Shown here is an 84-nucleotide RNA sequence from Eleutherodactylus coqui, a member of the family "mir-130 microRNA precursor family". The literature on the family includes a 2003 paper in Dev Cell by Houbaviy et al., "Embryonic stem cell-specific MicroRNAs". The source organism's lineage runs through Eukaryota, Gnathostomata, Euteleostomi, Anura and Eleutherodactylus.
RNA sequence: CACUGGCCAAUGCCCUUUUAACAUUGCACUGCUUUUUGUGCCAGGCCACUAGUAGUACAACAUAAAAAGGGCCCUGGACAGGAG
Number, nucleotide and partner (000 for none) at each position: 001c084002a000003c082004u000005g079006g000007c077008c076009a075010a000011u000012g072013c071014c070015c069016u068017u067018u066019u065020a000021a000022c000023a000024u060025u059026g058027c000028a056029c055030u054031g000032c000033u000034u000035u000036u000037u000038g000039u000040g000041c000042c000043a000044g000045g000046c000047c000048a000049c000050u000051a000052g000053u000054a030055g029056u028057a000058c026059a025060a024061c000062a000063u000064a000065a019066a018067a017068a016069g015070g014071g013072c012073c000074c000075u009076g008077g007078a000079c005080a000081g000082g003083a000084g001